[Rfam]
RNA sequence: UGAUUGAGAACCCCUUGAAUCAAGUACUGUAGUAGUGAUUCAAGGGGUUCUCAAAA
Numbered sequence: 001u002g003a004u005u006g007a008g009a010a011c012c013c014c015u016u017g018a019a020u021c022a023a024g025u026a027c028u029g030u031a032g033u034a035g036u037g038a039u040u041c042a043a044g045g046g047g048u049u050c051u052c053a054a055a056a
Base pairs, nucleotide, nucleotide: 004054005053006052007051008050009049010048011047012046013045014044015043016042017041018040019039020038021037022036

A member of the RNA family "Plastid-ccsA-ndhD-2 3UTR RNA" from Glycine max, 56 nucleotides long. Rfam's curators write: Plastid ccsA-ndhD-2 is a non-coding RNA (ncRNA) recognised in plastids. By type it is a cis-regulatory element.